[Rfam]
This 61-nucleotide RNA from Nelumbo nucifera belongs to the Rfam family "Plastid-psbA-2 3UTR RNA". The family's RNA type in Rfam is cis-regulatory element. Rfam's curators write: Plastid psbA-2 is a non-coding RNA (ncRNA) present in plastids. It was identified in inverted repeat sequences in the 3 prime untranslate region (3UTR) of photosystem II quinone-binding protein (psbA).

RNA sequence: UUGAAGGAACAAUAUCCAAUUUCUUGUUCUAUCAAGAGGUUGGUAUUGUUCCUUUAUUUUA
Numbered sequence: 001u002u003g004a005a006g007g008a009a010c011a012a013u014a015u016c017c018a019a020u021u022u023c024u025u026g027u028u029c030u031a032u033c034a035a036g037a038g039g040u041u042g043g044u045a046u047u048g049u050u051c052c053u054u055u056a057u058u059u060u061a
Base pairs, nucleotide, nucleotide: 002056003055004054005053006052007051008050009049010048011047012046013045014044015043016042018040022037023036024035025034026033